[Rfam]
The family of this 99-nucleotide RNA sequence from Streptomyces armeniacus is "Glycine riboswitch aptamer".
Taxonomically the source falls in Streptomyces (Bacteria, Actinomycetes, Kitasatosporales, Streptomycetaceae).
RNA sequence: UGAAUCCGCGCGGGAGAGUCCCCGGCAGUACGCCGCCGGGGCGCCGAAGGAGCAAGAUCCUCCCUUGAAUCUCUCAGGCCCCGAUACCGCGCAGGACGA
Numbered sequence: 001u002g003a004a005u006c007c008g009c010g011c012g013g014g015a016g017a018g019u020c021c022c023c024g025g026c027a028g029u030a031c032g033c034c035g036c037c038g039g040g041g042c043g044c045c046g047a048a049g050g051a052g053c054a055a056g057a058u059c060c061u062c063c064c065u066u067g068a069a070u071c072u073c074u075c076a077g078g079c080c081c082c083g084a085u086a087c088c089g090c091g092c093a094g095g096a097c098g099a
Stems, first nucleotide, its partner, number of pairs: 006094001008092006020041007043079003046075002050073003056066002